[Rfam]
RNA: mir-395 microRNA precursor family
Organism: Dichanthelium oligosanthes
RNA sequence: GUGUGCCCAAGAGUUCUCUGCAAGCACUUCACAAGACACUGUUUCAAAGCUUUUAUGAAGUGUUUAGGGAACUCUCAGUACCAC
Numbered sequence: 001g002u003g004u005g006c007c008c009a010a011g012a013g014u015u016c017u018c019u020g021c022a023a024g025c026a027c028u029u030c031a032c033a034a035g036a037c038a039c040u041g042u043u044u045c046a047a048a049g050c051u052u053u054u055a056u057g058a059a060g061u062g063u064u065u066a067g068g069g070a071a072c073u074c075u076c077a078g079u080a081c082c083a084c
Stems, first nucleotide, its partner, number of pairs: 007078001011074009022065010033054004